Rfam assigns this 321-nucleotide RNA sequence from Neoroseomonas lacus to the family "Alphaproteobacteria transfer-messenger RNA". Rfam classes the family as a non-coding RNA gene.

[Rfam]
RNA sequence: CCCCUCGAAAUCCGCGGCGCUCUCGCCUAUAUGAACCGUGUCACCUUGGUGACUAUGGCGAUAAACGGCGUAUGGAAUAAGCGUUGCGGACCCGGGGGCGGUACCCGGCGCCUCCACCACUCAACCCGCCUUAUCAGCGGCAGAUGGGGGCGAAAUAGGCUCGACGCGCGCGGUAAAGAUCCGUCUUUUGCCCGGCAUGGUACCGCCGUCAUCGGACCAAAUCACAAGUGCCAAUGAUAACGGUCGCGAGACCGUGGCGCUCGCUGCCUAGAGAUAGGUAAGCGCGGUUCGGGGGGCACCGGGCAACAGAAGCCCCCCACU
Dot-bracket structure: .......................................(((((....)))))...(((((.....((((.((........(((.(((...(((((.......)))))(((((((..............................)))))))............))))))........)).))))..)))))((((.[[[..[[)))).....]].]]].................................................................[[[[..((((((.]]]]...........))))))...